This 132-nucleotide RNA sequence from Anabarilius grahami belongs to the Rfam family "Small nucleolar RNA SNORA9". Pairs were carried over by alignment from the consensus structure, which was predicted with PFOLD. NCBI's taxonomy places the organism under Eukaryota, Vertebrata, Actinopterygii, Osteoglossocephalai, Anabarilius. From the family's description: ACA9 is a member of the H/ACA class of snoRNA that guide the sites of modification of uridines to pseudouridines. A search with the family's covariance model found it, with a score of 108 bits. Gene Ontology terms of the family: nucleolus and RNA processing. Clan: SNORA9 clan. The family's RNA type in Rfam is H/ACA-box small nucleolar RNA.

RNA sequence: GUGCAGGCUGUUCAGCAAGGUUGAGUCUGACGUGACUCUGUCCUUUCCUGUAUGUCUGCUAGAUGGACAUGGGGUGGUUUGAGGCCAUGUUGUUUGUCCCUUACAGCAUGGUUAUAGAAACCCCAGACAAGA
Numbered sequence: 001g002u003g004c005a006g007g008c009u010g011u012u013c014a015g016c017a018a019g020g021u022u023g024a025g026u027c028u029g030a031c032g033u034g035a036c037u038c039u040g041u042c043c044u045u046u047c048c049u050g051u052a053u054g055u056c057u058g059c060u061a062g063a064u065g066g067a068c069a070u071g072g073g074g075u076g077g078u079u080u081g082a083g084g085c086c087a088u089g090u091u092g093u094u095u096g097u098c099c100c101u102u103a104c105a106g107c108a109u110g111g112u113u114a115u116a117g118a119a120a121c122c123c124c125a126g127a128c129a130a131g132a
Base pairs, nucleotide, nucleotide: 003059004058005057006056007055008054018044019043020042023038024037025036026035027034070125071124072123073122074121085111086110087109088108089107090106092104093103